[Rfam]
RNA sequence: AACUAUAACAGUCAAUGAUGAUAGGUUACAGUUAAGUCAUCCGUUACAGUUUGUUUCUAUCUUUUUGAAAAAAAAGAUAGAAAUACUCACUUUUCAUGUGGGCGCUGUGGAUUACACCGCGACUUUUUCACCACCUUCUGAUAGCGGUGUUUAAAAAGUUUACUCUGAGGCUG
Numbered sequence: 001a002a003c004u005a006u007a008a009c010a011g012u013c014a015a016u017g018a019u020g021a022u023a024g025g026u027u028a029c030a031g032u033u034a035a036g037u038c039a040u041c042c043g044u045u046a047c048a049g050u051u052u053g054u055u056u057c058u059a060u061c062u063u064u065u066u067g068a069a070a071a072a073a074a075a076g077a078u079a080g081a082a083a084u085a086c087u088c089a090c091u092u093u094u095c096a097u098g099u100g101g102g103c104g105c106u107g108u109g110g111a112u113u114a115c116a117c118c119g120c121g122a123c124u125u126u127u128u129c130a131c132c133a134c135c136u137u138c139u140g141a142u143a144g145c146g147g148u149g150u151u152u153a154a155a156a157a158g159u160u161u162a163c164u165c166u167g168a169g170g171c172u173g
Base pairs, nucleotide, nucleotide: 009173010172011171012170013169016130017129018128020126021125023124025123026122027121030113031112032111033110034108038107039106041104053060054059061102062101063100066096067095068094069093070092071091075087076086078085079084132149133148134147135146